[Rfam]
RNA sequence: GGGUGAUUGGCCGUGUUGGCUGGUCAGGUGUCUACGUUGGUCGGGCCGCCAGCG
Numbered sequence: 001g002g003g004u005g006a007u008u009g010g011c012c013g014u015g016u017u018g019g020c021u022g023g024u025c026a027g028g029u030g031u032c033u034a035c036g037u038u039g040g041u042c043g044g045g046c047c048g049c050c051a052g053c054g
Stems, first nucleotide, its partner, number of pairs: 005025008035054007
A member of the RNA family "nhaA-I RNA" from Caulobacter henricii, 54 nucleotides long. By type it is a riboswitch. The family's consensus secondary structure is taken from published work. Lineage of the source: Bacteria > Pseudomonadati > Caulobacterales > Caulobacteraceae > Caulobacter. Rfam describes the family as follows. Acidobacteria, Alphaproteobacteria, Betaproteobacteria and Gammaproteobacteria, Verrucomicrobia, cand. division NC10.